[Rfam]
The family of this 119-nucleotide sequence from Pseudoxanthomonas suwonensis is "SAM riboswitch aptamer (S box leader)".
The family's consensus secondary structure is taken from published work.
RNA sequence: GCGCCAUCGAGACCGGCGGAGGGACAGGCCCUUUGAUGCCGGGGCAGCCAGCGGACGCGCAAGCGUCCUGCCAGGUGCCAAAUCCUGCGGGGACCCUGGCGUCCACCGGAAGAUGGUUC
Numbered sequence: 001g002c003g004c005c006a007u008c009g010a011g012a013c014c015g016g017c018g019g020a021g022g023g024a025c026a027g028g029c030c031c032u033u034u035g036a037u038g039c040c041g042g043g044g045c046a047g048c049c050a051g052c053g054g055a056c057g058c059g060c061a062a063g064c065g066u067c068c069u070g071c072c073a074g075g076u077g078c079c080a081a082a083u084c085c086u087g088c089g090g091g092g093a094c095c096c097u098g099g100c101g102u103c104c105a106c107c108g109g110a111a112g113a114u115g116g117u118u119c
Stems, first nucleotide, its partner, number of pairs: 001119001003117006013042005021031003025087004043079004048075002051071004083111001088108003092104001
Taxonomically the source falls in Pseudoxanthomonas suwonensis (Bacteria, Pseudomonadati, Pseudomonadota, Lysobacteraceae). Gene Ontology term of the family: regulation of gene expression.